Record summary: 7SK RNA: a 302-nucleotide RNA from Probosciger aterrimus. Taxonomically the source falls in Probosciger (Eukaryota, Craniata, Sarcopterygii, Cacatuidae). A reference for the family is Blencowe (2002), "Transcription: surprising role for an elusive small nuclear RNA", Curr Biol. A search with the family's covariance model found it, with a score of 254 bits. Pairs were carried over by alignment from the consensus structure, which is taken from published work.
RNA sequence: AGAUGUGAGGGCGAUCUGGCUGCGAUAUCUGUCACCCCAUUGAUCGCCAGGGUUGAUUCGGCUGAUCUGGCUGGCUAGGCGGGUGUCCCCUUCCUCCCUCACCGCUCCACAUGCGUCCCUCCCGAAGCUGCACGCUCGGUCGAAGAGGACGACCUUCCCCGAUAUAGGCGGUACCAUUCAUCGGUCACGGGUAUACGGUAGCUGCGCUCCCCUGCUAGAACCUCCAAACAAGCUCAAGGUCUAUGAUAAAGAAAAUGGGUUAAAAUAUGUGCAUUUUUAUUACAUUAAAAUAAUUUGUCUUU
Numbered sequence: 001a002g003a004u005g006u007g008a009g010g011g012c013g014a015u016c017u018g019g020c021u022g023c024g025a026u027a028u029c030u031g032u033c034a035c036c037c038c039a040u041u042g043a044u045c046g047c048c049a050g051g052g053u054u055g056a057u058u059c060g061g062c063u064g065a066u067c068u069g070g071c072u073g074g075c076u077a078g079g080c081g082g083g084u085g086u087c088c089c090c091u092u093c094c095u096c097c098c099u100c101a102c103c104g105c106u107c108c109a110c111a112u113g114c115g116u117c118c119c120u121c122c123c124g125a126a127g128c129u130g131c132a133c134g135c136u137c138g139g140u141c142g143a144a145g146a147g148g149a150c151g152a153c154c155u156u157c158c159c160c161g162a163u164a165u166a167g168g169c170g171g172u173a174c175c176a177u178u179c180a181u182c183g184g185u186c187a188c189g190g191g192u193a194u195a196c197g198g199u200a201g202c203u204g205c206g207c208u209c210c211c212c213u214g215c216u217a218g219a220a221c222c223u224c225c226a227a228a229c230a231a232g233c234u235c236a237a238g239g240u241c242u243a244u245g246a247u248a249a250a251g252a253a254a255a256u257g258g259g260u261u262a263a264a265a266u267a268u269g270u271g272c273a274u275u276u277u278u279a280u281u282a283c284a285u286u287a288a289a290a291u292a293a294u295u296u297g298u299c300u301u302u
Stems, first nucleotide, its partner, number of pairs: 002107002005102007013093002018090002024087010035074002037070003042067004046062003116171002118168003122139004127135002140162003147158003203263001208262001211259004222251002232244001